[Rfam]
The record is a 136-nucleotide RNA sequence from Coffea arabica, which matches "Small nucleolar RNA snoR136" in Rfam. The family has 8 seed sequences and 452 matches in Rfam 15.1. A search with the family's covariance model found it, with a score of 74 bits. Rfam classes the family as an H/ACA-box small nucleolar RNA.
RNA sequence: UUGGCUUUGCUUGCUUUUUAUUGGUUUACACAGUUCAUACCAUGUGUUGAACUAUUUAAAGUGAAGCCAGAGAAUUGUUUCUCUCGCUAUCCAGUGCUUCAAUUGUGGAGCAUUUGGACGUUGGGAAACUACAUCU
Dot-bracket structure: (((((..(((((...(......((((.(((((..........)))))..)))))....)))))..)))))......(((((((.((...(((((....(((....))).....)))))))..))))))).......